Rfam assigns this 35-nucleotide sequence from Callithrix jacchus to the family "Iron response element I". The base pairs follow the family's consensus structure, which is taken from published work. The match comes from Rfam's covariance-model search (42 bits). NCBI's taxonomy places the organism under Eukaryota, Teleostomi, Tetrapoda, Callitrichinae, Callithrix.
RNA sequence: CGGUUUUCUGCUUCAACAGUGCUUGGACGGAAUCC
Numbered sequence: 001c002g003g004u005u006u007u008c009u010g011c012u013u014c015a016a017c018a019g020u021g022c023u024u025g026g027a028c029g030g031a032a033u034c035c
Stems, first nucleotide, its partner, number of pairs: 002035002005032004010028001012027005017021001